Shown here is a 64-nucleotide sequence from Limoniibacter endophyticus, a member of the family "terC RNA". Rfam classes the family as a cis-regulatory element. Pairs were carried over by alignment from the consensus structure, which is taken from published work.
RNA sequence: CCACCAGGCCGGGCCCCUCUGGCGGACGUGCGCAUCCAGCGCCCCGUGAUGUCGGACUGGGAUU
Numbered sequence: 001c002c003a004c005c006a007g008g009c010c011g012g013g014c015c016c017c018u019c020u021g022g023c024g025g026a027c028g029u030g031c032g033c034a035u036c037c038a039g040c041g042c043c044c045c046g047u048g049a050u051g052u053c054g055g056a057c058u059g060g061g062a063u064u
Base pairs, nucleotide, nucleotide: 006058007057009055010054011053012052022047023046024045025044027041028040029039